The family of this 96-nucleotide RNA is "EGFOA RNA". Pairs were carried over by alignment from the consensus structure, which is taken from published work. The family's RNA type in Rfam is small RNA.

[Rfam]
RNA sequence: UUUUACCCAGACCUAGUGACCGUCCUGUUUGGGCUAAUAUCGAAAGGUUUAUAACCUACGCUGUAAUGGCAGACCUGGGAGCGUUUGACGAUAUUU
Numbered sequence: 001u002u003u004u005a006c007c008c009a010g011a012c013c014u015a016g017u018g019a020c021c022g023u024c025c026u027g028u029u030u031g032g033g034c035u036a037a038u039a040u041c042g043a044a045a046g047g048u049u050u051a052u053a054a055c056c057u058a059c060g061c062u063g064u065a066a067u068g069g070c071a072g073a074c075c076u077g078g079g080a081g082c083g084u085u086u087g088a089c090g091a092u093a094u095u096u
Stems, first nucleotide, its partner, number of pairs: 006079005022074002025072004036095007045057004058084005